[Rfam]
RNA sequence: CAGAGGAUAAUGAAAGUGGAAUUCACUCAGUGUUCAAUGAAUGUGGUCUCCAAAACGCUUUUUAAAAAGAGUCCAAUUCAUCAUCACAUUGAUAGGAACAUGAUUAAUUUUCCU
Numbered sequence: 001c002a003g004a005g006g007a008u009a010a011u012g013a014a015a016g017u018g019g020a021a022u023u024c025a026c027u028c029a030g031u032g033u034u035c036a037a038u039g040a041a042u043g044u045g046g047u048c049u050c051c052a053a054a055a056c057g058c059u060u061u062u063u064a065a066a067a068a069g070a071g072u073c074c075a076a077u078u079c080a081u082c083a084u085c086a087c088a089u090u091g092a093u094a095g096g097a098a099c100a101u102g103a104u105u106a107a108u109u110u111u112c113c114u
Base pairs, nucleotide, nucleotide: 003112004111005110006109007108008107010105016101017100018099022096023095025093027092028091029090030089031088032087033086037081038080039079040078041077042076045074046073048071049070050069